The record is a 94-nucleotide RNA from Leptolyngbyaceae cyanobacterium M65_K2018_010, which matches "TPP riboswitch aptamer (THI element)" in Rfam. It scores 73 bits against the family's covariance model. The source organism's lineage runs through Bacteria, Bacillati, Cyanophyceae, Leptolyngbyales and Leptolyngbyaceae.
RNA sequence: CUACCAAGCUAGGGGUGCCCGAUUUUGGGCUGAGAUUAUACCCUCAGAACCUGACCUGGUUAAUACCAGCGGAGGGAAGUGUCAAUUGAGGUUA
Numbered sequence: 001c002u003a004c005c006a007a008g009c010u011a012g013g014g015g016u017g018c019c020c021g022a023u024u025u026u027g028g029g030c031u032g033a034g035a036u037u038a039u040a041c042c043c044u045c046a047g048a049a050c051c052u053g054a055c056c057u058g059g060u061u062a063a064u065a066c067c068a069g070c071g072g073a074g075g076g077a078a079g080u081g082u083c084a085a086u087u088g089a090g091g092u093u094a
Stems, first nucleotide, its partner, number of pairs: 006082001008080003011044004016038001017030005050075003056069004